[Rfam]
RNA: Small nucleolar RNA snR191
Organism: Penicillium canariense
RNA sequence: UUCCAUUGCUAAGUCAAGGCUUCUUCCUGCGACUUUUGUCGUGCUUUCUUCAAUGGAGGUCUGUCUGUUACAGCUUUGGUAGAUCGACAAUGUCCCGCACCAAACUUCUUUCUGAAGCAAGGUUGAUUGGCCUUCGUCUUGAAGGCCUGUCGUAAGGGACAUAUGUGUUUUGUUUAAGAGUUGAGUUCUACUACUGCCUUUUCUGGUGGCUUGAUAGUCGAACUCUUAGUAACAUUCCACACAUUC
Numbered sequence: 001u002u003c004c005a006u007u008g009c010u011a012a013g014u015c016a017a018g019g020c021u022u023c024u025u026c027c028u029g030c031g032a033c034u035u036u037u038g039u040c041g042u043g044c045u046u047u048c049u050u051c052a053a054u055g056g057a058g059g060u061c062u063g064u065c066u067g068u069u070a071c072a073g074c075u076u077u078g079g080u081a082g083a084u085c086g087a088c089a090a091u092g093u094c095c096c097g098c099a100c101c102a103a104a105c106u107u108c109u110u111u112c113u114g115a116a117g118c119a120a121g122g123u124u125g126a127u128u129g130g131c132c133u134u135c136g137u138c139u140u141g142a143a144g145g146c147c148u149g150u151c152g153u154a155a156g157g158g159a160c161a162u163a164u165g166u167g168u169u170u171u172g173u174u175u176a177a178g179a180g181u182u183g184a185g186u187u188c189u190a191c192u193a194c195u196g197c198c199u200u201u202u203c204u205g206g207u208g209g210c211u212u213g214a215u216a217g218u219c220g221a222a223c224u225c226u227u228a229g230u231a232a233c234a235u236u237c238c239a240c241a242c243a244u245u246c
Stems, first nucleotide, its partner, number of pairs: 003079003017066004022059005028043005090162006099123003105117004125151002130146007165240003171234003183225004190218003194209005